Rfam assigns this 132-nucleotide sequence from Triplophysa rosa to the family "Small nucleolar RNA SNORA13".
From the family's description: ACA13 is a member of the H/ACA class of snoRNA that guide the sites of modification of uridines to pseudouridines.
The family is grouped with related families in Rfam's "SNORA13 clan".
By type it is an H/ACA-box small nucleolar RNA.
The family has 50 seed sequences and 1,034 matches in Rfam 15.1.

[Rfam]
RNA sequence: UGCCUUAAAGUGUUGCCUGUUCAUUGCUGGUCAGAUGAAUGUGGUGUCAACUAGGGCAUACAUUAAUACAUAAUAUGGCUGCUGGAAGGUGUUUACUCUGUUCCUUCCUGAAGUUCCAUGUUAUGGACAUUU
Numbered sequence: 001u002g003c004c005u006u007a008a009a010g011u012g013u014u015g016c017c018u019g020u021u022c023a024u025u026g027c028u029g030g031u032c033a034g035a036u037g038a039a040u041g042u043g044g045u046g047u048c049a050a051c052u053a054g055g056g057c058a059u060a061c062a063u064u065a066a067u068a069c070a071u072a073a074u075a076u077g078g079c080u081g082c083u084g085g086a087a088g089g090u091g092u093u094u095a096c097u098c099u100g101u102u103c104c105u106u107c108c109u110g111a112a113g114u115u116c117c118a119u120g121u122u123a124u125g126g127a128c129a130u131u132u
Stems, first nucleotide, its partner, number of pairs: 002057006011049002014046004018041008069125010084108002086105001090100002